[Rfam]
RNA: MAT2A 3'UTR stem loop D
Organism: Castor canadensis
RNA sequence: UCUGGGGUGUUGUGUAAGUGCAGAGAUGCCAUUACCUCAGA
Numbered sequence: 001u002c003u004g005g006g007g008u009g010u011u012g013u014g015u016a017a018g019u020g021c022a023g024a025g026a027u028g029c030c031a032u033u034a035c036c037u038c039a040g041a
Stems, first nucleotide, its partner, number of pairs: 001041008009032002012029002